[Rfam]
Record summary: Rfam assigns this 72-nucleotide sequence from Stackebrandtia nassauensis to the family "tRNA". Rfam classes the family as a transfer RNA. The match comes from Rfam's covariance-model search (74 bits). The organism belongs to Stackebrandtia nassauensis, within Bacteria.

RNA sequence: GGACGUUUAGCUCAGCGGGAGAGCGUUUCCCUGACACGGAAAAGGUCACAGGUUCAAAUCCUGUAACGUCCA
Numbered sequence: 001g002g003a004c005g006u007u008u009a010g011c012u013c014a015g016c017g018g019g020a021g022a023g024c025g026u027u028u029c030c031c032u033g034a035c036a037c038g039g040a041a042a043a044g045g046u047c048a049c050a051g052g053u054u055c056a057a058a059u060c061c062u063g064u065a066a067c068g069u070c071c072a
Base pairs, nucleotide, nucleotide: 001071002070003069004068005067006066007065010024011023012022013021026042027041028040029039030038048064049063050062051061052060